[Rfam]
RNA sequence: AGCCUCAUUCUAAAUGAGAAUGCUCACUGUUGAUCAGUGUCCAAAGUUGGUCAAUGUGGCUAAACUGACACAGGUUCUGCAUUUAUCACAGUGUAUGUAUUGCAGUGGUGACAGUGAGACUGUAAUAUUU
Numbered sequence: 001a002g003c004c005u006c007a008u009u010c011u012a013a014a015u016g017a018g019a020a021u022g023c024u025c026a027c028u029g030u031u032g033a034u035c036a037g038u039g040u041c042c043a044a045a046g047u048u049g050g051u052c053a054a055u056g057u058g059g060c061u062a063a064a065c066u067g068a069c070a071c072a073g074g075u076u077c078u079g080c081a082u083u084u085a086u087c088a089c090a091g092u093g094u095a096u097g098u099a100u101u102g103c104a105g106u107g108g109u110g111a112c113a114g115u116g117a118g119a120c121u122g123u124a125a126u127a128u129u130u
Stems, first nucleotide, its partner, number of pairs: 002060003006056003021043002025039003070123004084110006
RNA: Small nucleolar RNA SNORA1
Organism: Marmota monax